[Rfam]
RNA sequence: GCGACACUGCACGGUGCGACGGAGACUUCUAAAUUCCCCGGGGCCUUAUCGAUCCUCAAGGGAGCUGUACCUGACCAGGCCCGUGGGCCUGGACAAACGGCGCCCACCUACGUUGUAGGUUCCCGGGAUCGAAAACUCUGACGGCCGAGGCGGUUCGCC
Numbered sequence: 001g002c003g004a005c006a007c008u009g010c011a012c013g014g015u016g017c018g019a020c021g022g023a024g025a026c027u028u029c030u031a032a033a034u035u036c037c038c039c040g041g042g043g044c045c046u047u048a049u050c051g052a053u054c055c056u057c058a059a060g061g062g063a064g065c066u067g068u069a070c071c072u073g074a075c076c077a078g079g080c081c082c083g084u085g086g087g088c089c090u091g092g093a094c095a096a097a098c099g100g101c102g103c104c105c106a107c108c109u110a111c112g113u114u115g116u117a118g119g120u121u122c123c124c125g126g127g128a129u130c131g132a133a134a135a136c137u138c139u140g141a142c143g144g145c146c147g148a149g150g151c152g153g154u155u156c157g158c159c
Base pairs, nucleotide, nucleotide: 002157003156006154007153008152009151010150012147013146014145015144017143018142035128036127037126038125040123041122042121043120044119045118060105061104062103064101065100066099067098068097073094075092076091077090078089079088080087081086
Overview
The record is a 159-nucleotide RNA sequence from Pseudoxanthobacter soli, which matches "6S / SsrS RNA" in Rfam. On this family, see Elkina et al., RNA Biol 2017: "6S RNA in Rhodobacter sphaeroides: 6S RNA and pRNA transcript levels peak in late exponential phase and gene deletion causes a high salt stress phenotype".